RNA sequence: GGGGACGUUACGGAUUCGACAGAGGUGGUCUGGGCUUGAGCUGCGCGUCGGAGGGAUCGUCUCCGUCAGAAACGACAGUUAAUAAUAACUGGCAAAACAAACAACAACUUAGCAUUCGCAGCGUAAGCUGAUGAAUCUGCCUAGCAGUUCCAUCGCCCAUGUGGCAUUGUUAGGCUCACCUAUUAGUGGGAUACGGUAACGGUCGCCUCCUGAGGCCGUUGCAAGAGAUUAUCAGGAUAGCGCUCAAGACGCCUUGAUUGACGGCAUAAUGCAGCGCGAAUCGAAAGUAGUCAAUCUACACGCGUAGACGCUGAAGUAGCAGAGCCUUUGGACGCGGGUUCGACUCCCGCCGUCUCCAUAG
Numbered sequence: 001g002g003g004g005a006c007g008u009u010a011c012g013g014a015u016u017c018g019a020c021a022g023a024g025g026u027g028g029u030c031u032g033g034g035c036u037u038g039a040g041c042u043g044c045g046c047g048u049c050g051g052a053g054g055g056a057u058c059g060u061c062u063c064c065g066u067c068a069g070a071a072a073c074g075a076c077a078g079u080u081a082a083u084a085a086u087a088a089c090u091g092g093c094a095a096a097a098c099a100a101a102c103a104a105c106a107a108c109u110u111a112g113c114a115u116u117c118g119c120a121g122c123g124u125a126a127g128c129u130g131a132u133g134a135a136u137c138u139g140c141c142u143a144g145c146a147g148u149u150c151c152a153u154c155g156c157c158c159a160u161g162u163g164g165c166a167u168u169g170u171u172a173g174g175c176u177c178a179c180c181u182a183u184u185a186g187u188g189g190g191a192u193a194c195g196g197u198a199a200c201g202g203u204c205g206c207c208u209c210c211u212g213a214g215g216c217c218g219u220u221g222c223a224a225g226a227g228a229u230u231a232u233c234a235g236g237a238u239a240g241c242g243c244u245c246a247a248g249a250c251g252c253c254u255u256g257a258u259u260g261a262c263g264g265c266a267u268a269a270u271g272c273a274g275c276g277c278g279a280a281u282c283g284a285a286a287g288u289a290g291u292c293a294a295u296c297u298a299c300a301c302g303c304g305u306a307g308a309c310g311c312u313g314a315a316g317u318a319g320c321a322g323a324g325c326c327u328u329u330g331g332a333c334g335c336g337g338g339u340u341c342g343a344c345u346c347c348c349g350c351c352g353u354c355u356c357c358a359u360a361g
Stems, first nucleotide, its partner, number of pairs: 001357007020330007029321001034317004039312003044304005049065005057075004114136004119130003139175010150164004156190005196222009210236002240277005247270001251265003256296004334350005

Annotation: The family of this 361-nucleotide RNA from Sporosarcina luteola is "transfer-messenger RNA". Its family is annotated with RNA catabolic process in the Gene Ontology. Pairs were carried over by alignment from the consensus structure, which is taken from published work. The match comes from Rfam's covariance-model search (180 bits). Rfam's curators write: Bacterial tmRNA, also known as 10Sa RNA or SsrA, is named for its dual tRNA and mRNA-like properties. Its role is to liberate the mRNA from a stalled ribosome. To accomplish this part of the tmRNA is used as a reading frame that ends in a translation stop signal. The broken mRNA is replaced in the ribosome by the tmRNA and translation of the tmRNA leads to addition of a proteolysis tag to the incomplete protein enabling recognition by a protease.